[Rfam]
RNA sequence: CGACGUCUUCAGGGCGGGGCGAAAUUCCCCACCGGCGGUAGGUUGAAGGGCUCACGCCCGACAACGAGCCCGCGAGCGCUUCCGGUCACACGGAAGGUCAGCAGAUCCGGUCGAAUGCCGGAGCCGACGGCUGGAAACGGGCGACCGCUUCCUCACAGUCCGGAUAAAGAGAAGACGGCA
Numbered sequence: 001c002g003a004c005g006u007c008u009u010c011a012g013g014g015c016g017g018g019g020c021g022a023a024a025u026u027c028c029c030c031a032c033c034g035g036c037g038g039u040a041g042g043u044u045g046a047a048g049g050g051c052u053c054a055c056g057c058c059c060g061a062c063a064a065c066g067a068g069c070c071c072g073c074g075a076g077c078g079c080u081u082c083c084g085g086u087c088a089c090a091c092g093g094a095a096g097g098u099c100a101g102c103a104g105a106u107c108c109g110g111u112c113g114a115a116u117g118c119c120g121g122a123g124c125c126g127a128c129g130g131c132u133g134g135a136a137a138c139g140g141g142c143g144a145c146c147g148c149u150u151c152c153u154c155a156c157a158g159u160c161c162g163g164a165u166a167a168a169g170a171g172a173a174g175a176c177g178g179c180a
Stems, first nucleotide, its partner, number of pairs: 004177007017029003033126002035073004068124002076102002106122005128162003
This 180-nucleotide RNA from Rhodanobacter sp. OK091 belongs to the Rfam family "FMN riboswitch aptamer (RFN element)". A search with the family's covariance model found it, with a score of 79 bits. Its family is annotated with FMN binding in the Gene Ontology.